[Rfam]
RNA sequence: CAUCGCUUCAGGGCGGGGUGUGAUUCCCCACCGGUGGUAAAUGGAAAAAAGUUUUGCUUUUUAUCCUGUAGCCCACGAGCCGAUCAUCAUGUGAUUGGCAGAUUUGGUUAAAUUCCAAAGCCGACGGUAUAGUCCGGAUGAAAGAAGACGACA
Dot-bracket structure: ..(((((((......(((.......))).[[((((((.................................[[))))..(((...............)))...(((((.......)))))]])).(((....]]))).......)))).)))..
Description: The record is a 153-nucleotide RNA sequence from Acinetobacter gerneri, which matches "FMN riboswitch aptamer (RFN element)" in Rfam. About the family: The RFN element is a highly conserved domain that is found frequently in the 5'-untranslated regions of prokaryotic mRNAs that encode for flavin mononucleotide (FMN) biosynthesis and transport proteins. The organism belongs to Acinetobacter gerneri, within Bacteria.